[Rfam]
RNA: Small nucleolar RNA snoR639/H1
Organism: Pediculus humanus
RNA sequence: ACCCCAUGUUAUUAAGCCGACCGAGUCGACGUUAUAAUGUCGACUGGGUAUGCUAGAGAUGGGCAAAUUAAAUUCAAAUUGUGUGUAUGUACGACUACGUAAAUGUAGAUCGUACAAAGUAAUAUUUGAUACA
Numbered sequence: 001a002c003c004c005c006a007u008g009u010u011a012u013u014a015a016g017c018c019g020a021c022c023g024a025g026u027c028g029a030c031g032u033u034a035u036a037a038u039g040u041c042g043a044c045u046g047g048g049u050a051u052g053c054u055a056g057a058g059a060u061g062g063g064c065a066a067a068u069u070a071a072a073u074u075c076a077a078a079u080u081g082u083g084u085g086u087a088u089g090u091a092c093g094a095c096u097a098c099g100u101a102a103a104u105g106u107a108g109a110u111c112g113u114a115c116a117a118a119g120u121a122a123u124a125u126u127u128g129a130u131a132c133a
Stems, first nucleotide, its partner, number of pairs: 020049003024045004076127004088116007095108004